[Rfam]
RNA sequence: GGCGUUUUUCGCGCAGGCGGAGCUGGACCGUCGGCUCAAGUGAGGCUUCUGUUCGUUCACGAAGAUCGAAGUCGUUUCAGGGUCGAGCCGAUCUGUGCCGUGUUGUCCGAGCACGGCGUGCAGAUCGCUCCG
Number, nucleotide and partner (000 for none) at each position: 001g000002g000003c000004g000005u000006u000007u000008u000009u000010c000011g000012c000013g000014c000015a000016g032017g031018c030019g029020g028021a000022g000023c000024u000025g000026g000027a000028c020029c019030g018031u017032c016033g000034g000035c000036u000037c000038a000039a000040g000041u000042g000043a000044g000045g000046c000047u000048u000049c000050u000051g000052u000053u000054c000055g000056u000057u000058c000059a000060c000061g000062a000063a000064g000065a000066u000067c000068g000069a000070a000071g000072u000073c000074g000075u000076u000077u000078c132079a000080g130081g129082g128083u000084c000085g000086a000087g000088c000089c127090g126091a000092u124093c123094u122095g121096u120097g119098c118099c000100g000101u000102g000103u000104u000105g000106u000107c000108c000109g000110a000111g000112c000113a000114c000115g000116g000117c000118g098119u097120g096121c095122a094123g093124a092125u000126c090127g089128c082129u081130c080131c000132g078

Source information:
The record is a 132-nucleotide sequence, which matches "ALIL pseudoknot" in Rfam. Rfam classes the family as a cis-regulatory element.